[Rfam]
RNA sequence: CCUGCCGAAGUUUCCCUCAGGAUAGCAGAAGCUCAACACAGUUUUAUGAGGUAAAGAAAUGAUUAGAGGUCUCGGGGCCAAAGAGCCUUAGCCUAUUCUCAAACUUUAAAUAUGUAAGAAGUCGCUGUUGCUUAGUUGAACAGCGACACGAAUGAGAGCUUUUAGUGGGCCAUUUUUGGUAAGCAGAACUGGCGAUGCGGGAUGAACCGAACGCAAAGUUAAAGUGCCGGAAUGCACGCUCAUCAGACACCACAAAAGGUGUUGGUUCAUCCAGACAGCCGGACGGUGGCCAUGGAAGUCGGAACCCGCUAAGGAGUGUGUAACAACUCACCGGCCGAAUGAACUAGCCCUGAAAAUGGAUGGCGCUCAAGCGUGCUACUUAUACUUUGCCCUUAGCCCACUUUUGGUGGUUAAGGAGUAGGCAGGCGUGGAGGUGGUGACGAAGCCUUGGCUGUGAAGCUGGGUCGAACCGCCUCUAGUGCAGAU
Numbered sequence: 001c002c003u004g005c006c007g008a009a010g011u012u013u014c015c016c017u018c019a020g021g022a023u024a025g026c027a028g029a030a031g032c033u034c035a036a037c038a039c040a041g042u043u044u045u046a047u048g049a050g051g052u053a054a055a056g057a058a059a060u061g062a063u064u065a066g067a068g069g070u071c072u073c074g075g076g077g078c079c080a081a082a083g084a085g086c087c088u089u090a091g092c093c094u095a096u097u098c099u100c101a102a103a104c105u106u107u108a109a110a111u112a113u114g115u116a117a118g119a120a121g122u123c124g125c126u127g128u129u130g131c132u133u134a135g136u137u138g139a140a141c142a143g144c145g146a147c148a149c150g151a152a153u154g155a156g157a158g159c160u161u162u163u164a165g166u167g168g169g170c171c172a173u174u175u176u177u178g179g180u181a182a183g184c185a186g187a188a189c190u191g192g193c194g195a196u197g198c199g200g201g202a203u204g205a206a207c208c209g210a211a212c213g214c215a216a217a218g219u220u221a222a223a224g225u226g227c228c229g230g231a232a233u234g235c236a237c238g239c240u241c242a243u244c245a246g247a248c249a250c251c252a253c254a255a256a257a258g259g260u261g262u263u264g265g266u267u268c269a270u271c272c273a274g275a276c277a278g279c280c281g282g283a284c285g286g287u288g289g290c291c292a293u294g295g296a297a298g299u300c301g302g303a304a305c306c307c308g309c310u311a312a313g314g315a316g317u318g319u320g321u322a323a324c325a326a327c328u329c330a331c332c333g334g335c336c337g338a339a340u341g342a343a344c345u346a347g348c349c350c351u352g353a354a355a356a357u358g359g360a361u362g363g364c365g366c367u368c369a370a371g372c373g374u375g376c377u378a379c380u381u382a383u384a385c386u387u388u389g390c391c392c393u394u395a396g397c398c399c400a401c402u403u404u405u406g407g408u409g410g411u412u413a414a415g416g417a418g419u420a421g422g423c424a425g426g427c428g429u430g431g432a433g434g435u436g437g438u439g440a441c442g443a444a445g446c447c448u449u450g451g452c453u454g455u456g457a458a459g460c461u462g463g464g465u466c467g468a469a470c471c472g473c474c475u476c477u478a479g480u481g482c483a484g485a486u
Base pairs, nucleotide, nucleotide: 001426002425003424004423005422006421011024013022014021015020027163028162029161030160031159032158033157042119043118044117045116046115047114048113054107055105056104060101061100062099065096067094068093069092072091074089075088076087077086079085121147122146123145124144125143126142127141128140129139169193170192171191172190174188175187176186177185178184198209199208200207213390214389215388216387217386219384223380224379225378232377234376237373238372239371257351258350259349261348262347263346264345265344266343267342268341269340270339278335279334280333281332282331284308285307286306290302291301309313314329318327319326391416392415393414394413395412396411397410398409427481429478430477431476432475433474434473435472436471437470438469445465446464451460452459453458
Eukaryotic large subunit ribosomal RNA: a 486-nucleotide part of an RNA from Australozyma monospora. The base pairs follow the family's consensus structure, which is taken from published work.